The record is an 86-nucleotide RNA sequence from Papaver somniferum, which matches "mir-156 microRNA precursor family" in Rfam. A search with the family's covariance model found it, with a score of 64 bits. Taxonomically the source falls in Papaver (Eukaryota, Spermatophyta, Magnoliopsida, Mesangiospermae). This family represents the plant microRNA (miRNA) precursor mir-156. Its family is annotated with RISC complex and miRNA-mediated post-transcriptional gene silencing in the Gene Ontology. On this family, see Reinhart et al., Genes Dev 2002: "MicroRNAs in plants".
RNA sequence: GUGACAGAAGAGAGUGAGCCCACAUGGUUUUCCUGUAUGAGUGUUCCCAUACUUGAAGCACUGCGUGCUUACUCUCUAUCUGUCAA
Numbered sequence: 001g002u003g004a005c006a007g008a009a010g011a012g013a014g015u016g017a018g019c020c021c022a023c024a025u026g027g028u029u030u031u032c033c034u035g036u037a038u039g040a041g042u043g044u045u046c047c048c049a050u051a052c053u054u055g056a057a058g059c060a061c062u063g064c065g066u067g068c069u070u071a072c073u074c075u076c077u078a079u080c081u082g083u084c085a086a
Stems, first nucleotide, its partner, number of pairs: 002085007010076010021065001023063002